[Rfam]
RNA sequence: UUUUUGACUCUUUAGCUAUUGAACUGUUUUGUCCCUCUCUGUCAAAGAACUAAUUGUUCUCUGUCAGAGAGUGACAGAACAGUUCUAUAACUAAAGCGUCCACUAAC
Numbered sequence: 001u002u003u004u005u006g007a008c009u010c011u012u013u014a015g016c017u018a019u020u021g022a023a024c025u026g027u028u029u030u031g032u033c034c035c036u037c038u039c040u041g042u043c044a045a046a047g048a049a050c051u052a053a054u055u056g057u058u059c060u061c062u063g064u065c066a067g068a069g070a071g072u073g074a075c076a077g078a079a080c081a082g083u084u085c086u087a088u089a090a091c092u093a094a095a096g097c098g099u100c101c102a103c104u105a106a107c
Base pairs, nucleotide, nucleotide: 001106002105005102006101010096011095012094013093014092015091017089018088019087021085022084023083024082025081026080027079028068029067030066031065033063048058049057050056